The family of this 83-nucleotide RNA sequence from Neodrepanis coruscans is "mir-146 microRNA precursor family". The family's consensus secondary structure was predicted with WAR. A reference for the family is Lagos-Quintana et al. (2002), "Identification of tissue-specific microRNAs from mouse", Curr Biol. NCBI's taxonomy places the organism under Eukaryota, Sauria, Archosauria, Dinosauria, Neodrepanis.

[Rfam]
RNA sequence: GCUCUGAGAACUGAAUUCCAUGGGUUGUAAGUGAAUGUGCUGUCAGACUCAUGGGGCUCAGUUCCUCAGCUUGGAGAUUUCUG
Numbered sequence: 001g002c003u004c005u006g007a008g009a010a011c012u013g014a015a016u017u018c019c020a021u022g023g024g025u026u027g028u029a030a031g032u033g034a035a036u037g038u039g040c041u042g043u044c045a046g047a048c049u050c051a052u053g054g055g056g057c058u059c060a061g062u063u064c065c066u067c068a069g070c071u072u073g074g075a076g077a078u079u080u081c082u083g
Stems, first nucleotide, its partner, number of pairs: 001070002008064007022050004